U4atac minor spliceosomal RNA: a 126-nucleotide sequence from Marmota monax. The family's RNA type in Rfam is spliceosomal small nuclear RNA. U4atac is an essential component of the minor U12-type spliceosome complex which is required for removal of the rarer class of eukaryotic introns (AT-AC, U12-type).
[Rfam]
RNA sequence: ACCAUCCUUUUCUUGGGGUUGCGUUACUGUCCAAUGAACAUCUAAUGAGGGCAGUACUGCUAACGCCUACACAACACGCUUGCAUCAAUUAGAGCUUUGUUUUAUUUUGGUGCAAUUUUUGGAAAA
Numbered sequence: 001a002c003c004a005u006c007c008u009u010u011u012c013u014u015g016g017g018g019u020u021g022c023g024u025u026a027c028u029g030u031c032c033a034a035u036g037a038a039c040a041u042c043u044a045a046u047g048a049g050g051g052c053a054g055u056a057c058u059g060c061u062a063a064c065g066c067c068u069a070c071a072c073a074a075c076a077c078g079c080u081u082g083c084a085u086c087a088a089u090u091a092g093a094g095c096u097u098u099g100u101u102u103u104a105u106u107u108u109g110g111u112g113c114a115a116u117u118u119u120u121g122g123a124a125a126a
Stems, first nucleotide, its partner, number of pairs: 006018004021060003026055007038046001082113006090104006
A search with the family's covariance model found it, with a score of 112 bits. NCBI's taxonomy places the organism under Eukaryota, Dipnotetrapodomorpha, Tetrapoda, Mammalia, Marmota. The literature on the family includes a 2005 paper in RNA by Lorkovic et al., "Evolutionary conservation of minor U12-type spliceosome between plants and humans".